[Rfam]
RNA sequence: UUGACAUGGAAAUGAGAAUUGUUAUUAUUUCACCAACUGAUCGCGAGAUCAGUCGAUAAGCUGAAAGCCCAGCAGUCGGACUCUCAGGUUAUCUCCUCAUCAGGCUAAUCACGGUUAUUCGACCCGGCUCUGCCGGGUCUUUUUUUG
Numbered sequence: 001u002u003g004a005c006a007u008g009g010a011a012a013u014g015a016g017a018a019u020u021g022u023u024a025u026u027a028u029u030u031c032a033c034c035a036a037c038u039g040a041u042c043g044c045g046a047g048a049u050c051a052g053u054c055g056a057u058a059a060g061c062u063g064a065a066a067g068c069c070c071a072g073c074a075g076u077c078g079g080a081c082u083c084u085c086a087g088g089u090u091a092u093c094u095c096c097u098c099a100u101c102a103g104g105c106u107a108a109u110c111a112c113g114g115u116u117a118u119u120c121g122a123c124c125c126g127g128c129u130c131u132g133c134c135g136g137g138u139c140u141u142u143u144u145u146u147g
Stems, first nucleotide, its partner, number of pairs: 034055001036053007061087004066082002068078001095104003121139008
PrrF RNA: a 147-nucleotide RNA from Pseudomonas indica. The family has 18 seed sequences and 107 matches in Rfam 15.1. The literature on the family includes a 2004 paper in Proc Natl Acad Sci U S A by Wilderman et al., "Identification of tandem duplicate regulatory small RNAs in Pseudomonas aeruginosa involved in iron homeostasis". The source organism's lineage runs through Bacteria, Gammaproteobacteria, Pseudomonadales, Pseudomonadaceae and Pseudomonas. From the family's description: PrrF RNA is a small RNA involved in iron homeostasis and is found exclusively in Pseudomonas species.